Shown here is a 196-nucleotide RNA sequence from Nicotiana tabacum, a member of the family "U2 spliceosomal RNA".
It is annotated as a spliceosomal small nuclear RNA.
A search with the family's covariance model found it, with a score of 151 bits.
From the family's description: U2 is a small nuclear RNA (snRNA) component of the spliceosome (involved in pre-mRNA splicing). Complementary binding between U2 snRNA (in an area lying towards the 5' end but 3' to hairpin I) and the branchpoint sequence (BPS) of the intron results the bulging out of an unpaired adenosine, on the BPS, which initiates a nucleophilic attack at the intronic 5' splice site, thus starting the first of two transesterification reactions that mediate splicing.
RNA sequence: AUACCUUUCUCGGCCUUUUGGCAAAGAUCAAGUGUAGUAUUUGUUCUUAUCAAUUUAAUAUCUGAUAUGUGAGUCAUCGACUCACACGAUAUUAACUCAAUUUUUUAAAAGGGAGAGUCUACCACGGUAGCUUGCUAUCGGGGCUUUCAUUUGUCGCCUUGGCGUUGCACUAUUGCCUUGACCUGGCACACCCUAC
Numbered sequence: 001a002u003a004c005c006u007u008u009c010u011c012g013g014c015c016u017u018u019u020g021g022c023a024a025a026g027a028u029c030a031a032g033u034g035u036a037g038u039a040u041u042u043g044u045u046c047u048u049a050u051c052a053a054u055u056u057a058a059u060a061u062c063u064g065a066u067a068u069g070u071g072a073g074u075c076a077u078c079g080a081c082u083c084a085c086a087c088g089a090u091a092u093u094a095a096c097u098c099a100a101u102u103u104u105u106u107a108a109a110a111g112g113g114a115g116a117g118u119c120u121a122c123c124a125c126g127g128u129a130g131c132u133u134g135c136u137a138u139c140g141g142g143g144c145u146u147u148c149a150u151u152u153g154u155c156g157c158c159u160u161g162g163c164g165u166u167g168c169a170c171u172a173u174u175g176c177c178u179u180g181a182c183c184u185g186g187c188a189c190a191c192c193c194u195a196c
Stems, first nucleotide, its partner, number of pairs: 008027003013022003048067005069085007113148008127138004152188005158180001161177003